This 98-nucleotide sequence from Carpinus fangiana belongs to the Rfam family "MIR403 microRNA precursor family". The base pairs follow the family's consensus structure, which was predicted with WAR. Taxonomically the source falls in Carpinus (Eukaryota, Magnoliopsida, Pentapetalae, fabids). For this family Rfam cites "High throughput approaches reveal splicing of primary microRNA transcripts and tissue specific expression of mature microRNAs in Vitis vinifera" (Mica et al., BMC Genomics, 2009). Gene Ontology terms of the family: miRNA-mediated post-transcriptional gene silencing and RISC complex.
[Rfam]
RNA sequence: ACACAUCUCAAGUUUGUGCGUGAAUCAAACCCAUCAGCGCCGUUCAUUUUUAAUCAAUGUUGAAUGCGUUAGAUUCCGCACAAACUCGUGAUCUGUCU
Numbered sequence: 001a002c003a004c005a006u007c008u009c010a011a012g013u014u015u016g017u018g019c020g021u022g023a024a025u026c027a028a029a030c031c032c033a034u035c036a037g038c039g040c041c042g043u044u045c046a047u048u049u050u051u052a053a054u055c056a057a058u059g060u061u062g063a064a065u066g067c068g069u070u071a072g073a074u075u076c077c078g079c080a081c082a083a084a085c086u087c088g089u090g091a092u093c094u095g096u097c098u
Stems, first nucleotide, its partner, number of pairs: 001096003005092003011086010022076005028070003032066002042055001044053001